[Rfam]
Nucleotides: 082
Stems, first nucleotide, its partner, number of pairs: 008030008034051006055072007
Number, partner (000 for none) and nucleotide at each position: 001000c002000u003000g004000u005000g006000a007000u008030a009029u010028a011027g012026u013025a014024c015023u016000g017000u018000a019000a020000u021000a022000u023015a024014g025013u026012a027011c028010u029009g030008u031000g032000a033000u034051a035050u036049a037048g038047u039046a040000c041000u042000g043000u044000g045000g046039u047038a048037c049036u050035g051034u052000g053000a054000u055072a056071u057070a058069g059068u060067a061066c062000u063000g064000u065000a066061g067060u068059a069058c070057u071056g072055u073000g074000a075000u076000a077000u078000a079000g080000u081000a082000c
Background: This 82-nucleotide RNA sequence from Dicentrarchus labrax belongs to the Rfam family "Gut-1 RNA". The source organism's lineage runs through Eukaryota, Gnathostomata, Eurypterygia, Eupercaria and Dicentrarchus. The family has 38 seed sequences and 51 matches in Rfam 15.1. It scores 51 bits against the family's covariance model.